[Rfam]
RNA sequence: UCUGUGUGUGUAUGGUGUUCAGCACCAGGGACAGGUAUGUUUACCUGUGUGUGAAUGGUGUUCACCACCAGGGACAGGUGUGUUUACCU
Number, nucleotide and partner (000 for none) at each position: 001u078002c077003u076004g075005u074006g000007u000008g000009u000010g000011u000012a000013u070014g069015g068016u067017g066018u000019u064020c000021a062022g061023c060024a059025c058026c057027a056028g000029g050030g000031a048032c047033a046034g045035g044036u043037a042038u000039g000040u000041u000042u037043a036044c035045c034046u033047g032048u031049g000050u029051g000052u000053g000054a000055a000056u027057g026058g025059u024060g023061u022062u021063c000064a019065c000066c017067a016068c015069c014070a013071g000072g000073g000074a005075c004076a003077g002078g001079u000080g000081u000082g000083u000084u000085u000086a000087c000088c000089u000
Annotation:
Rfam assigns this 89-nucleotide RNA sequence from Branchiostoma floridae to the family "mir-2060 microRNA precursor family". The organism belongs to Branchiostoma, within Eukaryota. A search with the family's covariance model found it, with a score of 89 bits.